[Rfam]
RNA sequence: UAGUCCCGGCGGCCACAGGACGCGCGGAGGCGGGGCGGGGCGGGCACUGCUGUCAGCCGCGAGCCGGGACUUGUACA
Numbered sequence: 001u002a003g004u005c006c007c008g009g010c011g012g013c014c015a016c017a018g019g020a021c022g023c024g025c026g027g028a029g030g031c032g033g034g035g036c037g038g039g040g041c042g043g044g045c046a047c048u049g050c051u052g053u054c055a056g057c058c059g060c061g062a063g064c065c066g067g068g069a070c071u072u073g074u075a076c077a
Base pairs, nucleotide, nucleotide: 003036004035005034006033007032012031013030014029
RNA: GRIK4 3 prime UTR element
Organism: Macaca mulatta